Shown here is a 105-nucleotide RNA from Flavobacterium sangjuense, a member of the family "Flavo-1 RNA". Lineage of the source: Bacteria > Bacteroidota > Flavobacteriia > Flavobacteriaceae > Flavobacterium.
RNA sequence: UCCUAGCCCCGAUAGAAGUGAAAAUCCUGACAUUGCUAAAGACAAUCAUGAUGAGAUUGCUUCGUUCCUCGCAAUGACAGAUUGUAACGGAUAGCGGGAAACAGC
Numbered sequence: 001u002c003c004u005a006g007c008c009c010c011g012a013u014a015g016a017a018g019u020g021a022a023a024a025u026c027c028u029g030a031c032a033u034u035g036c037u038a039a040a041g042a043c044a045a046u047c048a049u050g051a052u053g054a055g056a057u058u059g060c061u062u063c064g065u066u067c068c069u070c071g072c073a074a075u076g077a078c079a080g081a082u083u084g085u086a087a088c089g090g091a092u093a094g095c096g097g098g099a100a101a102c103a104g105c
Stems, first nucleotide, its partner, number of pairs: 009097003013093002018088002023083004029078001031076006
The family's consensus secondary structure is taken from published work.